[Rfam]
RNA: 6S / SsrS RNA
RNA sequence: GGCGUACUGCGCUUCGCGACAGGGGUAACAGCAUCCCCGGGGCCUUACUGAUCUCUUAGGGAGCUGUCCCUGUGAAGGCUCGUGGGUCUUCGCAUAUGGCGCCCACCUACUUUGUAGGCACCCGGGAUCAAACACUUCCAUCGGUCGUUGCGGUCGCCA
Numbered sequence: 001g002g003c004g005u006a007c008u009g010c011g012c013u014u015c016g017c018g019a020c021a022g023g024g025g026u027a028a029c030a031g032c033a034u035c036c037c038c039g040g041g042g043c044c045u046u047a048c049u050g051a052u053c054u055c056u057u058a059g060g061g062a063g064c065u066g067u068c069c070c071u072g073u074g075a076a077g078g079c080u081c082g083u084g085g086g087u088c089u090u091c092g093c094a095u096a097u098g099g100c101g102c103c104c105a106c107c108u109a110c111u112u113u114g115u116a117g118g119c120a121c122c123c124g125g126g127a128u129c130a131a132a133c134a135c136u137u138c139c140a141u142c143g144g145u146c147g148u149u150g151c152g153g154u155c156g157c158c159a
Stems, first nucleotide, its partner, number of pairs: 002157003006154006012147001015144001017143003034127004039122002042119003059104003063100005072093007